[Rfam]
RNA sequence: CGCCGGUCCCCCCGCGACGAUAGCUUGCAAACCCCGCCAGGCCCGGAAGGGAGCAACGGUAGCAGGCGAUUCGGGUGCCGGGGUGCGGCUGGCGGGG
Numbered sequence: 001c002g003c004c005g006g007u008c009c010c011c012c013c014g015c016g017a018c019g020a021u022a023g024c025u026u027g028c029a030a031a032c033c034c035c036g037c038c039a040g041g042c043c044c045g046g047a048a049g050g051g052a053g054c055a056a057c058g059g060u061a062g063c064a065g066g067c068g069a070u071u072c073g074g075g076u077g078c079c080g081g082g083g084u085g086c087g088g089c090u091g092g093c094g095g096g097g
Base pairs, nucleotide, nucleotide: 004091005090006089007088008087010083011082012081013080014079015075018073019072020071023067024066025065026064027063028062034059035058036057042051043050044049
RNA: Bacterial small signal recognition particle RNA
Organism: Mizugakiibacter sediminis